[Rfam]
RNA sequence: ACGCUCAGGAUACGGAAUGGAACGGCGGGCCGACCCGUGGGCCGGAUACCCUGGCCACGUGCGGGCCCGAGCAAGCGGGUCCGCAAAGCCGACAGCCGUCGCACCAGGGAGAAGCCCAUG
Numbered sequence: 001a002c003g004c005u006c007a008g009g010a011u012a013c014g015g016a017a018u019g020g021a022a023c024g025g026c027g028g029g030c031c032g033a034c035c036c037g038u039g040g041g042c043c044g045g046a047u048a049c050c051c052u053g054g055c056c057a058c059g060u061g062c063g064g065g066c067c068c069g070a071g072c073a074a075g076c077g078g079g080u081c082c083g084c085a086a087a088g089c090c091g092a093c094a095g096c097c098g099u100c101g102c103a104c105c106a107g108g109g110a111g112a113a114g115c116c117c118a119u120g
Stems, first nucleotide, its partner, number of pairs: 060085004066079004088102002091100003
RNA: Streptomyces-metH RNA
Organism: Streptomyces sp. CB02056